The family of this 78-nucleotide RNA from Varanus komodoensis is "mir-96 microRNA precursor family". It scores 86 bits against the family's covariance model. The organism belongs to Varanus, within Eukaryota. Pairs were carried over by alignment from the consensus structure, which was predicted with RNAalifold.
[Rfam]
RNA sequence: CUGCCCCUUUUGGCACUAGCACAUUUUUGCUGUUUUCUGUCUGCGCUGAGCAAUUAUGUGUAGUGCCAAUAUGGGAGG
Numbered sequence: 001c002u003g004c005c006c007c008u009u010u011u012g013g014c015a016c017u018a019g020c021a022c023a024u025u026u027u028u029g030c031u032g033u034u035u036u037c038u039g040u041c042u043g044c045g046c047u048g049a050g051c052a053a054u055u056a057u058g059u060g061u062a063g064u065g066c067c068a069a070u071a072u073g074g075g076a077g078g
Stems, first nucleotide, its partner, number of pairs: 004075003008071001010069008019061006027053005